[Rfam]
RNA sequence: CUGCCGUGAUGGCAAUAUUUUUCGUCAACAGCAUUUCACCGGGUGAAUGUUGACUCCUGUGGUCUGAGCAG
Numbered sequence: 001c002u003g004c005c006g007u008g009a010u011g012g013c014a015a016u017a018u019u020u021u022u023c024g025u026c027a028a029c030a031g032c033a034u035u036u037c038a039c040c041g042g043g044u045g046a047a048u049g050u051u052g053a054c055u056c057c058u059g060u061g062g063u064c065u066g067a068g069c070a071g
Stems, first nucleotide, its partner, number of pairs: 002070003008026004
RNA: Small nucleolar RNA SNORD56